[Rfam]
RNA sequence: GCUGCCCUGAGACAGGUUGUCCUCCAGGUCGCUUUGGCAGCCCUCGUCGUUGAGCGAGCUCUGCUUGGUCACCUUGGGCGACAGCAGCUUGACCAGGUCGCCCAGU
Numbered sequence: 001g002c003u004g005c006c007c008u009g010a011g012a013c014a015g016g017u018u019g020u021c022c023u024c025c026a027g028g029u030c031g032c033u034u035u036g037g038c039a040g041c042c043c044u045c046g047u048c049g050u051u052g053a054g055c056g057a058g059c060u061c062u063g064c065u066u067g068g069u070c071a072c073c074u075u076g077g078g079c080g081a082c083a084g085c086a087g088c089u090u091g092a093c094c095a096g097g098u099c100g101c102c103c104a105g106u
Base pairs, nucleotide, nucleotide: 001106002105003104004103006097007096008095009094011090012089016085017084018083020081021080022078023077024076026074027073028072029071031069032068033067036065037064038063039062040061043058044057045056046055047054
mir-2968 microRNA precursor family: a 106-nucleotide sequence from Notamacropus eugenii. It is one of the family's seed sequences.